[Rfam]
RNA sequence: UCGAAGCUCCAACAAAUGGCUAAGACUUGUUUUUAGUGUGUAGGAGUUUUUGAAAAUAGAAUAGAUAAACAUAAGGAGCAAUAAACCCUCUUUUGAUAGAACAAGUAAAGGGUUUAUUGCUCCUUU
Numbered sequence: 001u002c003g004a005a006g007c008u009c010c011a012a013c014a015a016a017u018g019g020c021u022a023a024g025a026c027u028u029g030u031u032u033u034u035a036g037u038g039u040g041u042a043g044g045a046g047u048u049u050u051u052g053a054a055a056a057u058a059g060a061a062u063a064g065a066u067a068a069a070c071a072u073a074a075g076g077a078g079c080a081a082u083a084a085a086c087c088c089u090c091u092u093u094u095g096a097u098a099g100a101a102c103a104a105g106u107a108a109a110g111g112g113u114u115u116a117u118u119g120c121u122c123c124u125u126u
Base pairs, nucleotide, nucleotide: 009019010018011017073125074124075123076122077121078120079119080118081117082116083115084114086112087111088110091107092105093104094103
RNA: Plastid-psbA-1 3UTR RNA